[Rfam]
RNA: Guanidine-I riboswitch aptamer
Organism: Virgibacillus phasianinus
RNA sequence: AUUAAAGUUUUCUAGGGUUCCGCAAUCUAGAUUGGACUGGUCCAAGAGAAAACGCACAUGCAUGAUGUGUACACGGAGGGACAAAAGCCCGGGAGGA
Numbered sequence: 001a002u003u004a005a006a007g008u009u010u011u012c013u014a015g016g017g018u019u020c021c022g023c024a025a026u027c028u029a030g031a032u033u034g035g036a037c038u039g040g041u042c043c044a045a046g047a048g049a050a051a052a053c054g055c056a057c058a059u060g061c062a063u064g065a066u067g068u069g070u071a072c073a074c075g076g077a078g079g080g081a082c083a084a085a086a087g088c089c090c091g092g093g094a095g096g097a
Base pairs, nucleotide, nucleotide: 007053008052009051010050011049012048015043016042020040021039022037023034024033025032026031054070055069056068057067058066059065072092074095078090079089080088